[Rfam]
RNA sequence: UGGUGACCUGAGGCUCCCUGGCUGUCACUCUGUCCCAGCCACUCCUGGCCUGCGGGGCACCGGAGUCCCAGUAAAGUCUGUGGGGCCUGACCC
Numbered sequence: 001u002g003g004u005g006a007c008c009u010g011a012g013g014c015u016c017c018c019u020g021g022c023u024g025u026c027a028c029u030c031u032g033u034c035c036c037a038g039c040c041a042c043u044c045c046u047g048g049c050c051u052g053c054g055g056g057g058c059a060c061c062g063g064a065g066u067c068c069c070a071g072u073a074a075a076g077u078c079u080g081u082g083g084g085g086c087c088u089g090a091c092c093c
Base pairs, nucleotide, nucleotide: 002092003091004090005086007085008084009083011079012078013077014076015075021072022071023070024069027066028065029064030063032061039055040054042052
A member of the RNA family "mir-8813 microRNA precursor family" from Canis lupus, 93 nucleotides long.
Pairs were carried over by alignment from the consensus structure, which was predicted with RNAalifold.